[Rfam]
This 102-nucleotide RNA sequence from Thermanaerosceptrum fracticalcis belongs to the Rfam family "Purine riboswitch aptamer". The organism belongs to Thermanaerosceptrum, within Bacteria. About the family: Riboswitches are metabolite binding domains within certain messenger RNAs that serve as precision sensors for their corresponding targets.

RNA sequence: ACUAAUAUAGUUCGUAGAACCUGUAUAUGUUUAGUAAUAUGGUCUAAAUGUUUCUACCAGGCGACCGUAAAUUGCCUGACUACGGGUUGUUUAUACGAGGAU
Numbered sequence: 001a002c003u004a005a006u007a008u009a010g011u012u013c014g015u016a017g018a019a020c021c022u023g024u025a026u027a028u029g030u031u032u033a034g035u036a037a038u039a040u041g042g043u044c045u046a047a048a049u050g051u052u053u054c055u056a057c058c059a060g061g062c063g064a065c066c067g068u069a070a071a072u073u074g075c076c077u078g079a080c081u082a083c084g085g086g087u088u089g090u091u092u093a094u095a096c097g098a099g100g101a102u
Base pairs, nucleotide, nucleotide: 018088019087020086021085022084023083024082025081029049030048031047032046033045034044058078059077060076061075062074063073064072